[Rfam]
RNA sequence: UUUUUGCGUGAGGGAUUGAGGCGGUAUCCUUUUUUGAGGCACGAAAAAAAGAUAUAGCCGAAAGCCCGACCCCGC
Numbered sequence: 001u002u003u004u005u006g007c008g009u010g011a012g013g014g015a016u017u018g019a020g021g022c023g024g025u026a027u028c029c030u031u032u033u034u035u036g037a038g039g040c041a042c043g044a045a046a047a048a049a050a051g052a053u054a055u056a057g058c059c060g061a062a063a064g065c066c067c068g069a070c071c072c073c074g075c
Base pairs, nucleotide, nucleotide: 012067013066014065016063017062021058022057026053027052028051032048033047034046035045